[Rfam]
RNA: ZMP/ZTP riboswitch aptamer (pfl RNA motif)
RNA sequence: GUCCGUUUUUGCGACUGGCGCCGUAGAGGUGGAGCACCACCGGGAAGCGACCGACGAGGCCGGCACCGCGCGCCUGGGUGUGGCCA
Numbered sequence: 001g002u003c004c005g006u007u008u009u010u011g012c013g014a015c016u017g018g019c020g021c022c023g024u025a026g027a028g029g030u031g032g033a034g035c036a037c038c039a040c041c042g043g044g045a046a047g048c049g050a051c052c053g054a055c056g057a058g059g060c061c062g063g064c065a066c067c068g069c070g071c072g073c074c075u076g077g078g079u080g081u082g083g084c085c086a
Base pairs, nucleotide, nucleotide: 003056006053009050010049011048012047015044016043017074018073019072020071021070029040030039031038032037063081064080065079066078067077